[Rfam]
RNA sequence: AUAACUACGUCACACAAGCACUGUCUUGAGCUCUGAAUGCAGUUAGUGCUACUUGUUGGGGUAGUUUUG
Numbered sequence: 001a002u003a004a005c006u007a008c009g010u011c012a013c014a015c016a017a018g019c020a021c022u023g024u025c026u027u028g029a030g031c032u033c034u035g036a037a038u039g040c041a042g043u044u045a046g047u048g049c050u051a052c053u054u055g056u057u058g059g060g061g062u063a064g065u066u067u068u069g
Base pairs, nucleotide, nucleotide: 004065005064006063007062008061010059011058013055014054017050018049019048020047021046022045025042026041
RNA: miR-430 microRNA precursor family